The record is a 63-nucleotide RNA, which matches "Plastid-psbA-4 3UTR RNA" in Rfam. It is one of the family's seed sequences. The family is grouped with related families in Rfam's "Plastid-psbA 3UTR RNA clan".
RNA sequence: GAAAGUAAAGGGGCAUUACCGAUUUCUUGACAGAACAAGAAAUUGGUUAUUGCUCCUUUACUA
Numbered sequence: 001g002a003a004a005g006u007a008a009a010g011g012g013g014c015a016u017u018a019c020c021g022a023u024u025u026c027u028u029g030a031c032a033g034a035a036c037a038a039g040a041a042a043u044u045g046g047u048u049a050u051u052g053c054u055c056c057u058u059u060a061c062u063a
Stems, first nucleotide, its partner, number of pairs: 007059009017049002021044002024041006
Record summary:
The family's RNA type in Rfam is cis-regulatory element. Rfam's curators write: Plastid psbA-4 is a non-coding RNA (ncRNA) present in plastids. It was identified in inverted repeat sequences in the 3 prime untranslate region (3UTR) of photosystem II quinone-binding protein (psbA).